[Rfam]
The family of this 103-nucleotide sequence from Humibacillus sp. DSM 29435 is "mraW RNA".
NCBI's taxonomy places the organism under Bacteria, Bacillati, Actinomycetota, Intrasporangiaceae, Humibacillus.
By type it is a cis-regulatory element.
RNA sequence: CACGAGACCUGAGUGCCGGCCUCCAGCCGCUCCCCUCCCGAGACGACUUCCCCCGUCUCGGGCGAGGCAGCGGAUGGGGACCAGCCCGCAGGAUCGCGCGUCG
Dot-bracket structure: .........((.(.((.((.(((((.(((((((.(.((((((((..........)))))))).).)).))))).))))).)).)).).)).............
Numbered sequence: 001c002a003c004g005a006g007a008c009c010u011g012a013g014u015g016c017c018g019g020c021c022u023c024c025a026g027c028c029g030c031u032c033c034c035c036u037c038c039c040g041a042g043a044c045g046a047c048u049u050c051c052c053c054c055g056u057c058u059c060g061g062g063c064g065a066g067g068c069a070g071c072g073g074a075u076g077g078g079g080a081c082c083a084g085c086c087c088g089c090a091g092g093a094u095c096g097c098g099c100g101u102c103g
Stems, first nucleotide, its partner, number of pairs: 010090002013087001015085002018082002021079005027073005032067002035064001037062008
About this RNA
Rfam 15.1 lists 851 matches to the family in 821 species. The family's consensus secondary structure is taken from published work.